[Rfam]
RNA: S15-Flavobacteria ribosomal protein leader
Organism: Aquimarina aggregata
RNA sequence: UAUAUUUGCACGCUGAUAACAAGGCGUUAUCAAUACAUAAAAAUCAUUUAAAUAAUAUUGGAAUG
Numbered sequence: 001u002a003u004a005u006u007u008g009c010a011c012g013c014u015g016a017u018a019a020c021a022a023g024g025c026g027u028u029a030u031c032a033a034u035a036c037a038u039a040a041a042a043a044u045c046a047u048u049u050a051a052a053u054a055a056u057a058u059u060g061g062a063a064u065g
Base pairs, nucleotide, nucleotide: 014032015031016030017029018028019027